This 100-nucleotide RNA sequence from bacterium HR12 belongs to the Rfam family "Pyrrolysine insertion sequence mttB". A search with the family's covariance model found it, with a score of 38 bits. On this family, see Theil Have et al., BMC Bioinformatics 2013: "Effects of using coding potential, sequence conservation and mRNA structure conservation for predicting pyrroly-sine containing genes". By type it is a cis-regulatory element.
RNA sequence: CUCACCGCCUCGAAGAUCCCCGACGCCCAGGCGGCCUACGAGUCGGCGAACACGCUCCAGCCCACGCUCCUCGCCGGGGUGAACUUCGUGCUGCACGCGG
Numbered sequence: 001c002u003c004a005c006c007g008c009c010u011c012g013a014a015g016a017u018c019c020c021c022g023a024c025g026c027c028c029a030g031g032c033g034g035c036c037u038a039c040g041a042g043u044c045g046g047c048g049a050a051c052a053c054g055c056u057c058c059a060g061c062c063c064a065c066g067c068u069c070c071u072c073g074c075c076g077g078g079g080u081g082a083a084c085u086u087c088g089u090g091c092u093g094c095a096c097g098c099g100g
Base pairs, nucleotide, nucleotide: 003012025032033062034061035060077098079096080095